[Rfam]
RNA: t44 RNA
Organism: Yersinia pestis
RNA sequence: ACUCAUAUGUGUAAAUAACACACACGUGUCGACACAUACACCGGGGUGCCCUAAAGUUUUUGAUUGUUAUCAAUCGCUUAUGGGGUCGGUGUUAUGGGACACGUGGAGGCAUAAC
Numbered sequence: 001a002c003u004c005a006u007a008u009g010u011g012u013a014a015a016u017a018a019c020a021c022a023c024a025c026g027u028g029u030c031g032a033c034a035c036a037u038a039c040a041c042c043g044g045g046g047u048g049c050c051c052u053a054a055a056g057u058u059u060u061u062g063a064u065u066g067u068u069a070u071c072a073a074u075c076g077c078u079u080a081u082g083g084g085g086u087c088g089g090u091g092u093u094a095u096g097g098g099a100c101a102c103g104u105g106g107a108g109g110c111a112u113a114a115c
Base pairs, nucleotide, nucleotide: 023105024104025103026102027101028100029099030098035096036095037094038093040090041089042088043087048086049085050084051083052082